RNA: Rhizobiales sRNA Atu_At1
RNA sequence: CUGUAGGCCGUGUCAAACGGACAUGAUGGUGCUGAAGAACAGGGAGAUUUUUCCGUUUUCUCUCCAUGGCCAACGAAACGGCAGCCGAGCUUCCUAUCCAUCCGGCCU
Numbered sequence: 001c002u003g004u005a006g007g008c009c010g011u012g013u014c015a016a017a018c019g020g021a022c023a024u025g026a027u028g029g030u031g032c033u034g035a036a037g038a039a040c041a042g043g044g045a046g047a048u049u050u051u052u053c054c055g056u057u058u059u060c061u062c063u064c065c066a067u068g069g070c071c072a073a074c075g076a077a078a079c080g081g082c083a084g085c086c087g088a089g090c091u092u093c094c095u096a097u098c099c100a101u102c103c104g105g106c107c108u
Base pairs, nucleotide, nucleotide: 006107007106008105009104011023012022013021014020025102026101027100028099029098034093035092036091037090040068041067043065044064045063046062069082070081071080